[Rfam]
RNA sequence: UGUUUGCUGUGACGAAUCACAAGGAUGGUAUCUGAGUAAGGGUGGCUCUUGAAAAAGUCCCCCUUCGUUGAUUACCCAUCCUAAACUGAUCAUAUGUUCUGAGCAAACA
Numbered sequence: 001u002g003u004u005u006g007c008u009g010u011g012a013c014g015a016a017u018c019a020c021a022a023g024g025a026u027g028g029u030a031u032c033u034g035a036g037u038a039a040g041g042g043u044g045g046c047u048c049u050u051g052a053a054a055a056a057g058u059c060c061c062c063c064u065u066c067g068u069u070g071a072u073u074a075c076c077c078a079u080c081c082u083a084a085a086c087u088g089a090u091c092a093u094a095u096g097u098u099c100u101g102a103g104c105a106a107a108c109a
Stems, first nucleotide, its partner, number of pairs: 001109007038065004
RNA: Small nucleolar RNA Z118/Z121/Z120